RNA sequence: GGAUGUGGGGGUGAUCUGGCUGCGACAUCUGUCACCCCACGGGUCGCCAGGGUUGACUCGGCUGAUCUGGCUGGCGAGGGCAGCGUCCCUUUCCUUCCUCUCUGCUCCACCUGCGUCCCUCCUGAAGCCACAGGCUUGGUCGAAGAGGGUGACCUUCCCUGACAGAGACAAACCAUUCAUCAGCCAAGGGCACGGGGGAGCUGCACUCCCCUCCGAACAACUGAUAAAAACUGUUUUGAAUUUCAGCCAAAAGCCCUCUCUUCUUUCUCAAAAAACAGUUAAAAUCUGACUUGACGCACAGUAAGAUUUCUGCU
Numbered sequence: 001g002g003a004u005g006u007g008g009g010g011g012u013g014a015u016c017u018g019g020c021u022g023c024g025a026c027a028u029c030u031g032u033c034a035c036c037c038c039a040c041g042g043g044u045c046g047c048c049a050g051g052g053u054u055g056a057c058u059c060g061g062c063u064g065a066u067c068u069g070g071c072u073g074g075c076g077a078g079g080g081c082a083g084c085g086u087c088c089c090u091u092u093c094c095u096u097c098c099u100c101u102c103u104g105c106u107c108c109a110c111c112u113g114c115g116u117c118c119c120u121c122c123u124g125a126a127g128c129c130a131c132a133g134g135c136u137u138g139g140u141c142g143a144a145g146a147g148g149g150u151g152a153c154c155u156u157c158c159c160u161g162a163c164a165g166a167g168a169c170a171a172a173c174c175a176u177u178c179a180u181c182a183g184c185c186a187a188g189g190g191c192a193c194g195g196g197g198g199a200g201c202u203g204c205a206c207u208c209c210c211c212u213c214c215g216a217a218c219a220a221c222u223g224a225u226a227a228a229a230a231c232u233g234u235u236u237u238g239a240a241u242u243u244c245a246g247c248c249a250a251a252a253g254c255c256c257u258c259u260c261u262u263c264u265u266u267c268u269c270a271a272a273a274a275a276c277a278g279u280u281a282a283a284a285u286c287u288g289a290c291u292u293g294a295c296g297c298a299c300a301g302u303a304a305g306a307u308u309u310c311u312g313c314u
Stems, first nucleotide, its partner, number of pairs: 001108003005102001007100005013093002018090002024087003029083005035074002037070003042067004046062003116171001119167003122139004127135002140162003147158003200254003206246002212240001214238001219236002277314003281309003
About this RNA: Rfam assigns this 314-nucleotide RNA sequence from Chionis minor to the family "7SK RNA". Rfam 15.1 lists 49,373 matches to the family in 668 species. For this family Rfam cites "Transcription: surprising role for an elusive small nuclear RNA" (Blencowe, Curr Biol, 2002). The family is grouped with related families in Rfam's "7SK clan". Lineage of the source: Eukaryota > Chordata > Dinosauria > Theropoda > Chionis.